[Rfam]
RNA: ZMP/ZTP riboswitch aptamer (pfl RNA motif)
Organism: Microterricola viridarii
RNA sequence: UGGACGCGUCGCAACUGGCGUUCGGAUGGGUCACCAUCGGGGAGCGACUGAUCACGGUUAGUGGCCGCACGCCUGGGCCACGACG
Number, nucleotide and partner (000 for none) at each position: 001u000002g000003g053004a052005c000006g000007c000008g048009u047010c046011g045012c044013a000014a000015c041016u040017g073018g072019c071020g070021u069022u000023c000024g000025g000026a037027u036028g035029g034030g000031u000032c000033a000034c029035c028036a027037u026038c000039g000040g016041g015042g000043a000044g012045c011046g010047a009048c008049u000050g000051a000052u004053c003054a000055c000056g000057g000058u000059u000060a000061g000062u080063g079064g078065c077066c076067g000068c000069a021070c020071g019072c018073c017074u000075g000076g066077g065078c064079c063080a062081c000082g000083a000084c000085g000